RNA sequence: CUGGUGGUUAAUGAUGCACACUUUUUUCCCCGUCUUAUCGACUUUGGUGAAAAACGCUGACCAUAGCCAGUUGUGUCUGAAACCACUCU
Numbered sequence: 001c002u003g004g005u006g007g008u009u010a011a012u013g014a015u016g017c018a019c020a021c022u023u024u025u026u027u028c029c030c031c032g033u034c035u036u037a038u039c040g041a042c043u044u045u046g047g048u049g050a051a052a053a054a055c056g057c058u059g060a061c062c063a064u065a066g067c068c069a070g071u072u073g074u075g076u077c078u079g080a081a082a083c084c085a086c087u088c089u
Stems, first nucleotide, its partner, number of pairs: 003087007
Annotation:
A member of the RNA family "Small nucleolar SNORD12/SNORD106" from Kryptolebias marmoratus, 89 nucleotides long. The organism belongs to Kryptolebias, within Eukaryota. The base pairs follow the family's consensus structure, which was predicted with RNAalifold. The family is grouped with related families in Rfam's "SNORD12 clan". It scores 50 bits against the family's covariance model. It is annotated as a C/D-box small nucleolar RNA.